[Rfam]
The record is a 103-nucleotide sequence from Viridibacillus arenosi, which matches "SAM riboswitch aptamer (S box leader)" in Rfam. NCBI's taxonomy places the organism under Bacteria, Bacilli, Caryophanaceae, Viridibacillus, Viridibacillus arenosi. Pairs were carried over by alignment from the consensus structure, which is taken from published work.

RNA sequence: UACUUAUCAUGAGAAGCUAAGGGACUGGUCCGAUGAAGCUUCAGCAACCACUGUAUAACAGAAUGGUGCUACUUCCAGCAAGAGAAAUCUUGACAGAUAAGGG
Number, nucleotide and partner (000 for none) at each position: 001u103002a000003c101004u100005u099006a098007u097008c096009a000010u000011g000012a000013g042014a041015a040016g039017c038018u000019a000020a000021g031022g030023g029024a000025c078026u077027g076028g075029u023030c022031c021032g000033a000034u000035g000036a000037a000038g017039c016040u015041u014042c013043a070044g069045c068046a067047a000048c066049c065050a000051c061052u060053g059054u000055a000056u000057a000058a000059c053060a052061g051062a000063a000064u000065g049066g048067u046068g045069c044070u043071a000072c000073u000074u095075c028076c027077a026078g025079c092080a091081a090082g089083a088084g000085a000086a000087a000088u083089c082090u081091u080092g079093a000094c000095a074096g008097a007098u006099a005100a004101g003102g000103g001